The record is a 43-nucleotide sequence from Staphylococcus simulans, which matches "Ribosomal protein L19 leader" in Rfam. On this family, see Zengel and Lindahl, Prog Nucleic Acid Res Mol Biol 1994: "Diverse mechanisms for regulating ribosomal protein synthesis in Escherichia coli". It scores 42 bits against the family's covariance model. Its family is annotated with regulation of gene expression in the Gene Ontology.
[Rfam]
RNA sequence: ACUAUGAUCCGCUGCUAUUUUGUUGUCGAGGCAAGAACAUAGU
Dot-bracket structure: ..((((.((...((((............)).)).)).))))..